Overview
Rfam assigns this 100-nucleotide RNA sequence from Idiomarina baltica to the family "Alpha operon ribosome binding site". Rfam links the family to the GO term ribosome binding. The bacterial alpha operon ribosome binding site is surrounded by this complex pseudoknotted structure. Translation of the mRNA produces 4 ribosomal protein products, one of which (S4) acts as a translational repressor by binding to the nested pseudoknot region. The mechanism of repression is thought to involve a conformational switch in the pseudoknot region and ribosome entrapment. Pairs were carried over by alignment from the consensus structure, which is taken from published work.
RNA sequence: UUCGGCAAUCGGUUGAGUAUCCUAACGGGCUUUUCAACUGAAGCCUACAAAAAAAGGAGACGUGUUAGUGGCCCGUAUCGCUGGCAUUAACGUUCCUGAC
Numbered sequence: 001u002u003c004g005g006c007a008a009u010c011g012g013u014u015g016a017g018u019a020u021c022c023u024a025a026c027g028g029g030c031u032u033u034u035c036a037a038c039u040g041a042a043g044c045c046u047a048c049a050a051a052a053a054a055a056g057g058a059g060a061c062g063u064g065u066u067a068g069u070g071g072c073c074c075g076u077a078u079c080g081c082u083g084g085c086a087u088u089a090a091c092g093u094u095c096c097u098g099a100c
Stems, first nucleotide, its partner, number of pairs: 004045003009041005021084002026075004034099003